Notes: Rfam assigns this 82-nucleotide RNA sequence from Paenibacillus durus to the family "ZMP/ZTP riboswitch aptamer (pfl RNA motif)". Pairs were carried over by alignment from the consensus structure, which is taken from published work. Gene Ontology terms of the family: one-carbon metabolic process and regulation of purine nucleotide biosynthetic process.
RNA sequence: CGGUUCCGGUGUAACUGGCGACAAGUGUGGAUAAACCACGAUGGAGCAUCGGAGUAGACGGCCGGUCGCCUGGGCGAAAGAG
Numbered sequence: 001c002g003g004u005u006c007c008g009g010u011g012u013a014a015c016u017g018g019c020g021a022c023a024a025g026u027g028u029g030g031a032u033a034a035a036c037c038a039c040g041a042u043g044g045a046g047c048a049u050c051g052g053a054g055u056a057g058a059c060g061g062c063c064g065g066u067c068g069c070c071u072g073g074g075c076g077a078a079a080g081a082g
Stems, first nucleotide, its partner, number of pairs: 003055010015043001017070005027039004061075003